[Rfam]
The record is a 67-nucleotide sequence from Solibacillus sp. R5-41, which matches "Bacillaceae-1 RNA" in Rfam. The base pairs follow the family's consensus structure, which is taken from published work. Rfam classes the family as a small RNA. NCBI's taxonomy places the organism under Bacteria, Bacillati, Bacilli, Caryophanaceae, Solibacillus.
RNA sequence: AAUCGUGGAACAGAGGCUAAAAAUACCGCGUCCUACGGCAACGCCUGAGUGACCAAUAACCUAUUGG
Numbered sequence: 001a002a003u004c005g006u007g008g009a010a011c012a013g014a015g016g017c018u019a020a021a022a023a024u025a026c027c028g029c030g031u032c033c034u035a036c037g038g039c040a041a042c043g044c045c046u047g048a049g050u051g052a053c054c055a056a057u058a059a060c061c062u063a064u065u066g067g
Stems, first nucleotide, its partner, number of pairs: 011049001014046004026038003053067005